[Rfam]
A member of the RNA family "Small nucleolar RNA snoR100" from Rhododendron williamsianum, 108 nucleotides long. The source organism's lineage runs through Eukaryota, Embryophyta, Spermatophyta, Ericaceae and Rhododendron. The family's RNA type in Rfam is H/ACA-box small nucleolar RNA. For this family Rfam cites "Experimental RNomics: identification of 140 candidates for small non-messenger RNAs in the plant Arabidopsis thaliana" (Marker et al., Curr Biol, 2002).

RNA sequence: CAAUGAAGGAAGCAUGGUAAUGUGCACAUAAAUUGAAUUGGGUCUCUAGGCCUGCCUUCUCUGAUGCCAUUUGACUUUGAUUUGGGAGCACGGUUCCACAGCCAAACA
Numbered sequence: 001c002a003a004u005g006a007a008g009g010a011a012g013c014a015u016g017g018u019a020a021u022g023u024g025c026a027c028a029u030a031a032a033u034u035g036a037a038u039u040g041g042g043u044c045u046c047u048a049g050g051c052c053u054g055c056c057u058u059c060u061c062u063g064a065u066g067c068c069a070u071u072u073g074a075c076u077u078u079g080a081u082u083u084g085g086g087a088g089c090a091c092g093g094u095u096c097c098a099c100a101g102c103c104a105a106a107c108a
Stems, first nucleotide, its partner, number of pairs: 012025004040091001042089002050081001052079001054075001056073001